RNA sequence: AACUCAUCAAGAGUAGUGGAGGGAAAGGCCCGUUGAAGCUACAGCAACCCUUUUUAAAAGAAGGUGCUAAUUCCAACAGUCAUGGACUGAUAGAUGGGUC
Numbered sequence: 001a002a003c004u005c006a007u008c009a010a011g012a013g014u015a016g017u018g019g020a021g022g023g024a025a026a027g028g029c030c031c032g033u034u035g036a037a038g039c040u041a042c043a044g045c046a047a048c049c050c051u052u053u054u055u056a057a058a059a060g061a062a063g064g065u066g067c068u069a070a071u072u073c074c075a076a077c078a079g080u081c082a083u084g085g086a087c088u089g090a091u092a093g094a095u096g097g098g099u100c
Stems, first nucleotide, its partner, number of pairs: 002099007013042005021031003027074002043068004048064002050060004072092001077089005
This 100-nucleotide RNA from Veillonella sp. HPA0037 belongs to the Rfam family "SAM riboswitch aptamer (S box leader)". A search with the family's covariance model found it, with a score of 90 bits.